[Rfam]
The record is a 91-nucleotide sequence from Rheinheimera salexigens, which matches "c-di-GMP-I riboswitch aptamer" in Rfam.
About the family: GEMM was predicted in a large-scale screen for bacterial structured RNA regulatory elements. Genes associated with GEMM are involved in a diverse array of functions, including chemotaxis regulation, signal transduction, secretion and chitin.
The organism belongs to Rheinheimera, within Bacteria.
RNA sequence: GUCCAAGAAAGGCAAGUCAUCUGAAAAGGUGUACACGCAAAGCCUCAGAUCUAAGGCAUUAUUACAAUGCUAAGAUAGCUGGGCUACCGUC
Numbered sequence: 001g002u003c004c005a006a007g008a009a010a011g012g013c014a015a016g017u018c019a020u021c022u023g024a025a026a027a028g029g030u031g032u033a034c035a036c037g038c039a040a041a042g043c044c045u046c047a048g049a050u051c052u053a054a055g056g057c058a059u060u061a062u063u064a065c066a067a068u069g070c071u072a073a074g075a076u077a078g079c080u081g082g083g084c085u086a087c088c089g090u091c
Stems, first nucleotide, its partner, number of pairs: 012038002017033001018031005041085004046081003049076003056070004